Potassium channel RNA editing signal: a 114-nucleotide RNA from Lepeophtheirus salmonis. A search with the family's covariance model found it, with a score of 86 bits. From the family's description: This family represents a group of sequences related to the human potassium channel Kv1.1 hairpin element which directs the efficient modification of an adenosine to inosine by an adenosine deaminase acting on RNA (ADAR).
[Rfam]
RNA sequence: UUCAGCUAUGGUGACAUGGUACCAAGUACGAAUCUGGGGAAGUUAAUUGGAGGGAUUUGCUCCCUUUCUGGAGUACUUGUCAUUGCUCUUCCCGUCCCUGUCAUUGUCUCCAAC
Numbered sequence: 001u002u003c004a005g006c007u008a009u010g011g012u013g014a015c016a017u018g019g020u021a022c023c024a025a026g027u028a029c030g031a032a033u034c035u036g037g038g039g040a041a042g043u044u045a046a047u048u049g050g051a052g053g054g055a056u057u058u059g060c061u062c063c064c065u066u067u068c069u070g071g072a073g074u075a076c077u078u079g080u081c082a083u084u085g086c087u088c089u090u091c092c093c094g095u096c097c098c099u100g101u102c103a104u105u106g107u108c109u110c111c112a113a114c
Stems, first nucleotide, its partner, number of pairs: 002113001005110001008107004013102004018097002021095002037077002040074001049063003